[Rfam]
RNA sequence: GCUCUCCCGGCGCGUCCAGAACCGCAGGUGCCUCCUCCUUCGCCUGAUGGUGACGUGCCCACCUCGCCUCGCUUGUCCGGCAAAACGGAAGGCGAGGCUUUUU
Numbered sequence: 001g002c003u004c005u006c007c008c009g010g011c012g013c014g015u016c017c018a019g020a021a022c023c024g025c026a027g028g029u030g031c032c033u034c035c036u037c038c039u040u041c042g043c044c045u046g047a048u049g050g051u052g053a054c055g056u057g058c059c060c061a062c063c064u065c066g067c068c069u070c071g072c073u074u075g076u077c078c079g080g081c082a083a084a085a086c087g088g089a090a091g092g093c094g095a096g097g098c099u100u101u102u103u
Stems, first nucleotide, its partner, number of pairs: 009059008025046006066098009076088002
RNA: Rhizobiales sRNA Atu_C7